[Rfam]
RNA sequence: UGGAAGGUGCUCCUCGAACUCGGCUGAUCUGUCCCUCGCAAGACACAUCAUCCCAGUUCAGGAGCACUUUUCACGUCUACGGCACGCGACCACCGUGAAAG
Numbered sequence: 001u002g003g004a005a006g007g008u009g010c011u012c013c014u015c016g017a018a019c020u021c022g023g024c025u026g027a028u029c030u031g032u033c034c035c036u037c038g039c040a041a042g043a044c045a046c047a048u049c050a051u052c053c054c055a056g057u058u059c060a061g062g063a064g065c066a067c068u069u070u071u072c073a074c075g076u077c078u079a080c081g082g083c084a085c086g087c088g089a090c091c092a093c094c095g096u097g098a099a100a101g
Base pairs, nucleotide, nucleotide: 002072003071004070005069006068007067008066009065010064011063012062013061016059017058019056020055022053023052025050026049027048028047030045032043033042
The family of this 101-nucleotide RNA sequence from Cellulomonas fimi is "Actinobacteria sRNA Ms_IGR-7". A search with the family's covariance model found it, with a score of 47 bits. NCBI's taxonomy places the organism under Bacteria, Bacillati, Actinomycetota, Micrococcales, Cellulomonas. For this family Rfam cites "Identification of small RNAs in Mycobacterium smegmatis using heterologous Hfq" (Li et al., RNA, 2013). Rfam 15.1 lists 463 matches to the family in 194 species. By type it is a small RNA.